Rfam assigns this 78-nucleotide RNA sequence from Anguilla anguilla to the family "mir-460 microRNA precursor family". Lineage of the source: Eukaryota > Bilateria > Gnathostomata > Anguilliformes > Anguilla. Pairs were carried over by alignment from the consensus structure, which was predicted with RNAalifold.
RNA sequence: AUUCUCGGCUUCCUCAUUGUGCAUGCUGUGUGCUUCCAGUUGUGUCUGCACAGCGCCUGCAAUGUGGAGGCAGAGGGG
Numbered sequence: 001a002u003u004c005u006c007g008g009c010u011u012c013c014u015c016a017u018u019g020u021g022c023a024u025g026c027u028g029u030g031u032g033c034u035u036c037c038a039g040u041u042g043u044g045u046c047u048g049c050a051c052a053g054c055g056c057c058u059g060c061a062a063u064g065u066g067g068a069g070g071c072a073g074a075g076g077g078g
Stems, first nucleotide, its partner, number of pairs: 012067002015064007024055001026053006